[Rfam]
RNA: ASpks TB sRNA
Organism: Mycobacterium antarcticum
RNA sequence: CUUGACCGAGCCGAGCCACAGCGGCUGCGUGCGGUCCUGGCCGUACGUUCCGAGCAGCGCCUGCGCCUC
Numbered sequence: 001c002u003u004g005a006c007c008g009a010g011c012c013g014a015g016c017c018a019c020a021g022c023g024g025c026u027g028c029g030u031g032c033g034g035u036c037c038u039g040g041c042c043g044u045a046c047g048u049u050c051c052g053a054g055c056a057g058c059g060c061c062u063g064c065g066c067c068u069c
Stems, first nucleotide, its partner, number of pairs: 014026004028065003032059002037054002043048001